RNA sequence: GGUCUUAUAACGCUGAAUCCUUGAAAGACACAAGGAACGGGGGAACCAACGGAAGCCGCAACCCGGCUUCAUGGGGUGAAUCGCUCGGCACUUUCAAAUGCCGGGCGUAGGGCGACUCUCACGCCCGAAUCCGUCAGCUAACCUCGUAAGCGUGUGGAGAGGCAAC
Numbered sequence: 001g002g003u004c005u006u007a008u009a010a011c012g013c014u015g016a017a018u019c020c021u022u023g024a025a026a027g028a029c030a031c032a033a034g035g036a037a038c039g040g041g042g043g044a045a046c047c048a049a050c051g052g053a054a055g056c057c058g059c060a061a062c063c064c065g066g067c068u069u070c071a072u073g074g075g076g077u078g079a080a081u082c083g084c085u086c087g088g089c090a091c092u093u094u095c096a097a098a099u100g101c102c103g104g105g106c107g108u109a110g111g112g113c114g115a116c117u118c119u120c121a122c123g124c125c126c127g128a129a130u131c132c133g134u135c136a137g138c139u140a141a142c143c144u145c146g147u148a149a150g151c152g153u154g155u156g157g158a159g160a161g162g163c164a165a166c
Base pairs, nucleotide, nucleotide: 011152012151013150014149018036019035020034021033022032023031037147038146039145040144041143042142047073048072074132075131076130082107083106084105085104086103087102088101089100090099110126111125112124113123
RNA: c-di-AMP riboswitch aptamer (ydaO/yuaA leader)
Organism: Paenibacillus macerans